The family of this 83-nucleotide sequence from Miscanthus lutarioriparius is "Small nucleolar RNA snoR60". The match comes from Rfam's covariance-model search (67 bits). A reference for the family is Barneche et al. (2000), "Fibrillarin genes encode both a conserved nucleolar protein and a novel small nucleolar RNA involved in ribosomal RNA methylation in Arabidopsis thaliana", J Biol Chem. NCBI's taxonomy places the organism under Eukaryota, Embryophyta, Tracheophyta, Saccharinae, Miscanthus.
RNA sequence: CUGUAAAUGAUGAUCUUACUCGGUUACUCGGAUUCCCCUUUAGGACAUCUAAAUGGAUGAUGCAAAUUCGAGUUUUCGAUGCA
Numbered sequence: 001c002u003g004u005a006a007a008u009g010a011u012g013a014u015c016u017u018a019c020u021c022g023g024u025u026a027c028u029c030g031g032a033u034u035c036c037c038c039u040u041u042a043g044g045a046c047a048u049c050u051a052a053a054u055g056g057a058u059g060a061u062g063c064a065a066a067u068u069c070g071a072g073u074u075u076u077c078g079a080u081g082c083a
Stems, first nucleotide, its partner, number of pairs: 002083004